[Rfam]
The family of this 139-nucleotide RNA sequence from Nothocercus julius is "Small nucleolar RNA SNORA5". The family is grouped with related families in Rfam's "SNORA5 clan".
Nucleotides: 139
Stems, first nucleotide, its partner, number of pairs: 002060004018047004023042006073131002076128002078125001085116005
Number, partner (000 for none) and nucleotide at each position: 001000u002060g003059c004058a005057g006000c007000c008000c009000c010000g011000u012000c013000a014000a015000a016000u017000u018047c019046g020045g021044u022000g023042c024041c025040c026039g027038c028037c029000c030000a031000c032000g033000c034000c035000g036000u037028g038027g039026c040025g041024g042023g043000g044021a045020c046019c047018g048000g049000c050000c051000a052000g053000c054000c055000g056000g057005c058004u059003g060002c061000c062000a063000c064000a065000g066000c067000a068000a069000g070000g071000c072000c073131g074130u075000a076128g077127u078125c079000c080000a081000u082000g083000g084000g085116c086115c087114c088113c089112g090000c091000g092000u093000c094000c095000c096000c097000c098000u099000u100000c101000c102000c103000g104000u105000g106000g107000g108000a109000c110000g111000c112089c113088g114087g115086g116085g117000a118000u119000a120000a121000a122000a123000c124000c125078g126000u127077g128076c129000c130074a131073c132000g133000g134000a135000c136000a137000c138000g139000c
Taxonomically the source falls in Nothocercus (Eukaryota, Dipnotetrapodomorpha, Palaeognathae, Tinamidae). About the family: ACA5 is a member of the H/ACA class of snoRNA that guide the sites of modification of uridines to pseudouridines. By type it is an H/ACA-box small nucleolar RNA. Pairs were carried over by alignment from the consensus structure, which was predicted with RNAfold.